[Rfam]
RNA: tRNA
RNA sequence: UGGGAUGUCGCCAAGUGGUAAGGCAGCGGGUUCUGGUCCCGCCAUUCGGGGGUUCGAAUCCCUCCAUCCCAG
Numbered sequence: 001u002g003g004g005a006u007g008u009c010g011c012c013a014a015g016u017g018g019u020a021a022g023g024c025a026g027c028g029g030g031u032u033c034u035g036g037u038c039c040c041g042c043c044a045u046u047c048g049g050g051g052g053u054u055c056g057a058a059u060c061c062c063u064c065c066a067u068c069c070c071a072g
Stems, first nucleotide, its partner, number of pairs: 001071007010024003026042005048064005